[Rfam]
RNA sequence: GGCUGGGUAGCAAAGUGGUUAUGCAGAGGCCUGCAAAGCCUUGGACGCCGGUUCGAUUCCGGCCUCAGCCU
Numbered sequence: 001g002g003c004u005g006g007g008u009a010g011c012a013a014a015g016u017g018g019u020u021a022u023g024c025a026g027a028g029g030c031c032u033g034c035a036a037a038g039c040c041u042u043g044g045a046c047g048c049c050g051g052u053u054c055g056a057u058u059c060c061g062g063c064c065u066c067a068g069c070c071u
Stems, first nucleotide, its partner, number of pairs: 001070007010024003026042005047063005
Shown here is a 71-nucleotide RNA from Francisella tularensis, a member of the family "tRNA". About the family: Transfer RNA (tRNA) molecules are approximately 80 nucleotides in length. It is annotated as a transfer RNA.